[Rfam]
RNA sequence: GAAUCACGGGCGAGAAACCCGUGCGCCGAUUGAUCAAGGGUUCCAGGGUCAAGCUAAUCUGCCCUGGGUAAGUCGGGACCUAAGGCGAGGCCGACAGGCGUAGUCGAUGGACAACGGGUUGAUAUUCCCGUACCGGCGAAGUGGCGCCCAUGCUGAACCCGGUGAUGCUAACCACCCGAAACCCAGCUUAUUGAUCCCUUCGGGGUGAGAGGGCUGGGCGGAGCGUGGGAUCCGACCCGGUAGUAGGCAAGCGAUGGGGUGACGCAGGAAGGUAGCCCAACCGCCGCGAUGGUAGACGGCGGGUAAGCAUGUAGGGGAUGUGGUAGGCAAAUCCGCCACAUGGCCGUUUGAUCGGUGACCCUGAGAUGUGAUGCCGACCCCGUAGGGGGGAAGUGGGUGAUCCUAUGCUGCCGAGAAAAACCUCUAGCGAGCCACGAGCCGCCCGUACCCGAAACCGACUCAGGUGAUCAGGUAGAGAAUACCGAGGCGAU
Numbered sequence: 001g002a003a004u005c006a007c008g009g010g011c012g013a014g015a016a017a018c019c020c021g022u023g024c025g026c027c028g029a030u031u032g033a034u035c036a037a038g039g040g041u042u043c044c045a046g047g048g049u050c051a052a053g054c055u056a057a058u059c060u061g062c063c064c065u066g067g068g069u070a071a072g073u074c075g076g077g078a079c080c081u082a083a084g085g086c087g088a089g090g091c092c093g094a095c096a097g098g099c100g101u102a103g104u105c106g107a108u109g110g111a112c113a114a115c116g117g118g119u120u121g122a123u124a125u126u127c128c129c130g131u132a133c134c135g136g137c138g139a140a141g142u143g144g145c146g147c148c149c150a151u152g153c154u155g156a157a158c159c160c161g162g163u164g165a166u167g168c169u170a171a172c173c174a175c176c177c178g179a180a181a182c183c184c185a186g187c188u189u190a191u192u193g194a195u196c197c198c199u200u201c202g203g204g205g206u207g208a209g210a211g212g213g214c215u216g217g218g219c220g221g222a223g224c225g226u227g228g229g230a231u232c233c234g235a236c237c238c239g240g241u242a243g244u245a246g247g248c249a250a251g252c253g254a255u256g257g258g259g260u261g262a263c264g265c266a267g268g269a270a271g272g273u274a275g276c277c278c279a280a281c282c283g284c285c286g287c288g289a290u291g292g293u294a295g296a297c298g299g300c301g302g303g304u305a306a307g308c309a310u311g312u313a314g315g316g317g318a319u320g321u322g323g324u325a326g327g328c329a330a331a332u333c334c335g336c337c338a339c340a341u342g343g344c345c346g347u348u349u350g351a352u353c354g355g356u357g358a359c360c361c362u363g364a365g366a367u368g369u370g371a372u373g374c375c376g377a378c379c380c381c382g383u384a385g386g387g388g389g390g391a392a393g394u395g396g397g398u399g400a401u402c403c404u405a406u407g408c409u410g411c412c413g414a415g416a417a418a419a420a421c422c423u424c425u426a427g428c429g430a431g432c433c434a435c436g437a438g439c440c441g442c443c444c445g446u447a448c449c450c451g452a453a454a455c456c457g458a459c460u461c462a463g464g465u466g467a468u469c470a471g472g473u474a475g476a477g478a479a480u481a482c483c484g485a486g487g488c489g490a491u
Stems, first nucleotide, its partner, number of pairs: 005023006024489004032469004038449002043067006052060002074445004079110002084105003088101001090099003115234006238441004246433003251428002256424005264411004270404003275398005281302006303374002307369004314362003318341007326334002378389004455464002471483004